[Rfam]
Shown here is a 167-nucleotide sequence from Xylanimonas oleitrophica, a member of the family "c-di-AMP riboswitch aptamer (ydaO/yuaA leader)". Gene Ontology terms of the family: regulation of gene expression and cyclic-di-AMP binding. Lineage of the source: Bacteria > Bacillati > Actinomycetota > Actinomycetes > Xylanimonas.
RNA sequence: GAGGACCGCAGACCGACCGCAUGACAGGGGCGGGGGACCCAAUUUCGGGCGGCUGAGACAGCGUCCUUGGGGUGAAGCCGAGCAAGGCCCUCGGGCCGAGCGAGGCCGGGUGAUUUCUCCCACCCGAACCCGACAGCUCACCUCGUAGGCGGAUGGAGAGGGAACAC
Numbered sequence: 001g002a003g004g005a006c007c008g009c010a011g012a013c014c015g016a017c018c019g020c021a022u023g024a025c026a027g028g029g030g031c032g033g034g035g036g037a038c039c040c041a042a043u044u045u046c047g048g049g050c051g052g053c054u055g056a057g058a059c060a061g062c063g064u065c066c067u068u069g070g071g072g073u074g075a076a077g078c079c080g081a082g083c084a085a086g087g088c089c090c091u092c093g094g095g096c097c098g099a100g101c102g103a104g105g106c107c108g109g110g111u112g113a114u115u116u117c118u119c120c121c122a123c124c125c126g127a128a129c130c131c132g133a134c135a136g137c138u139c140a141c142c143u144c145g146u147a148g149g150c151g152g153a154u155g156g157a158g159a160g161g162g163a164a165c166a167c
Base pairs, nucleotide, nucleotide: 007151008150009149014029030146031145032144033143034142035141040069041068070131071130072129078105079104108125109124110123111122